[Rfam]
The record is a 132-nucleotide RNA sequence from Caenorhabditis elegans, which matches "Caenorhabditis snoRNA ceN84" in Rfam. The literature on the family includes a 2007 paper in BMC Mol Biol by Jia et al., "Systematic identification of non-coding RNA 2,2,7-trimethylguanosine cap structures in Caenorhabditis elegans". The family's RNA type in Rfam is H/ACA-box small nucleolar RNA. Rfam's curators put it in the seed alignment. Its family is annotated with nucleolus and RNA processing in the Gene Ontology. Lineage of the source: Eukaryota > Metazoa > Eumetazoa > Rhabditoidea > Caenorhabditis.
RNA sequence: UUGCCACAAUGUCUGGGCAAGGUGCCCUGCACCCGCUUGAGCAACCUAAUCCAUUGAUGGCUAUAUAAAAUUCAUUGAGUAAUCCCUGUUGAGUUAUAUAGAACUUUCCAGUUUCAUAUCAUUGAUACAAUU
Numbered sequence: 001u002u003g004c005c006a007c008a009a010u011g012u013c014u015g016g017g018c019a020a021g022g023u024g025c026c027c028u029g030c031a032c033c034c035g036c037u038u039g040a041g042c043a044a045c046c047u048a049a050u051c052c053a054u055u056g057a058u059g060g061c062u063a064u065a066u067a068a069a070a071u072u073c074a075u076u077g078a079g080u081a082a083u084c085c086c087u088g089u090u091g092a093g094u095u096a097u098a099u100a101g102a103a104c105u106u107u108c109c110a111g112u113u114u115c116a117u118a119u120c121a122u123u124g125a126u127a128c129a130a131u132u
Stems, first nucleotide, its partner, number of pairs: 003061003007056004015052003020047003023043003026039001029036002075124001077122001079120001086111003091106005